[Rfam]
RNA sequence: AUCUUAUCGAGAGUGGCAGAGGGACUGGCCCUGUGAAGCCACAGCAACCGGUCCUGUUCAGCAAAAAAGCUGUGCAGGAUGCUGGUGCUAAUUCCUGUCUCGUGUUUUGGGAAAAGAUAAGAU
Numbered sequence: 001a002u003c004u005u006a007u008c009g010a011g012a013g014u015g016g017c018a019g020a021g022g023g024a025c026u027g028g029c030c031c032u033g034u035g036a037a038g039c040c041a042c043a044g045c046a047a048c049c050g051g052u053c054c055u056g057u058u059c060a061g062c063a064a065a066a067a068a069g070c071u072g073u074g075c076a077g078g079a080u081g082c083u084g085g086u087g088c089u090a091a092u093u094c095c096u097g098u099c100u101c102g103u104g105u106u107u108u109g110g111g112a113a114a115a116g117a118u119a120a121g122a123u
Base pairs, nucleotide, nucleotide: 001123002122003121004120005119006118007117008116013042014041015040016039017038021031022030023029025097027095028094043089044088045087046086048085049084051080052079053078054077055076056075057074093115098112099111100110101109102108
RNA: SAM riboswitch aptamer (S box leader)